[Rfam]
RNA sequence: CUUCCGCUCUCCCCGCACAGGAGAGUGGAACGAGGCCCCUGCGCUCUCUGCCCUGACUGCGCUUGGACCUCUCCACGGCCGCGCGGGCCCGCACACUCGCCGGCCGGAGCACUCCGGGCUGCGGUGCCGGACGGGUUGAGGGUCCCGUCAGGCGC
Dot-bracket structure: ..((((.(((((.......))))).))))..((((..(..(.((((........))..)).)..)..))))....((((((...(((........)))..))))))...((((.((...)).))))..(.(((((........))))))......
The family of this 155-nucleotide RNA from Streptomyces inusitatus is "Streptomyces sRNA scr5239". It scores 124 bits against the family's covariance model. Gene Ontology terms of the family: mRNA binding and negative regulation of translation. By type it is a small RNA.